RNA sequence: CUCCAGUGAUGAACUCAAAUUAGUGCCACGUGUCUGGGCCACUGAUCUAAGUGAUGGGAUUGAGGGACUGAGGAG
Numbered sequence: 001c002u003c004c005a006g007u008g009a010u011g012a013a014c015u016c017a018a019a020u021u022a023g024u025g026c027c028a029c030g031u032g033u034c035u036g037g038g039c040c041a042c043u044g045a046u047c048u049a050a051g052u053g054a055u056g057g058g059a060u061u062g063a064g065g066g067a068c069u070g071a072g073g074a075g
Stems, first nucleotide, its partner, number of pairs: 001075004